Rfam assigns this 126-nucleotide RNA sequence from Sphenodon punctatus to the family "Small nucleolar RNA SNORD22". The organism belongs to Sphenodon, within Eukaryota. Its family is annotated with nucleolus and RNA processing in the Gene Ontology.
RNA sequence: CCCCGAUGAGGAAAGCAGAUCCUGUCUUACUGUCUGUCCUAGGACCAGAACCUGAGAAGGUUGAACCCACUGGUUCUGGCAGAGGGAGAGGAGGAGACUUGUUCCAUUGAGAACUGUCUGAGGGGG
Number, nucleotide and partner (000 for none) at each position: 001c125002c124003c123004c122005g000006a000007u000008g000009a000010g000011g000012a000013a000014a000015g000016c000017a000018g000019a000020u000021c000022c000023u000024g000025u000026c000027u000028u000029a000030c000031u000032g000033u000034c000035u000036g000037u000038c000039c000040u000041a000042g000043g000044a000045c000046c000047a000048g000049a000050a000051c000052c000053u000054g000055a000056g000057a000058a000059g000060g000061u000062u000063g000064a000065a000066c000067c000068c000069a000070c000071u000072g000073g000074u000075u000076c000077u000078g000079g000080c000081a000082g000083a000084g000085g000086g000087a000088g000089a000090g000091g000092a000093g000094g000095a000096g000097a000098c000099u000100u000101g000102u000103u000104c000105c000106a000107u000108u000109g000110a000111g000112a000113a000114c000115u000116g000117u000118c000119u000120g000121a000122g004123g003124g002125g001126g000